[Rfam]
RNA: FMN riboswitch aptamer (RFN element)
Organism: Mobiluncus curtisii
RNA sequence: AGAUAGCUCUGGGGGCUGUGUGAUUCAGCACCGGCGGUUAAAGUCCGCGACCUCGUGCUUGCACGAGUUGAAUCGGUGAAAUUCCGAUACCGACGGUUAUAGUCCGGAUGGGAAGAGCCGUGC
Number, nucleotide and partner (000 for none) at each position: 001a000002g000003a121004u120005a000006g118007c117008u116009c115010u114011g000012g000013g000014g000015g000016c028017u027018g026019u000020g000021u000022g000023a000024u000025u000026c018027a017028g016029c000030a103031c102032c092033g091034g048035c047036g046037g045038u000039u000040a000041a000042a000043g090044u089045c037046c036047g035048c034049g000050a000051c000052c067053u066054c000055g000056u000057g000058c000059u000060u000061g000062c000063a000064c000065g000066a053067g052068u000069u000070g000071a000072a088073u087074c086075g085076g084077u000078g000079a000080a000081a000082u000083u000084c076085c075086g074087a073088u072089a044090c043091c033092g032093a000094c106095g105096g104097u000098u000099a000100u000101a000102g031103u030104c096105c095106g094107g000108a000109u000110g000111g000112g000113a000114a010115g009116a008117g007118c006119c000120g004121u003122g000123c000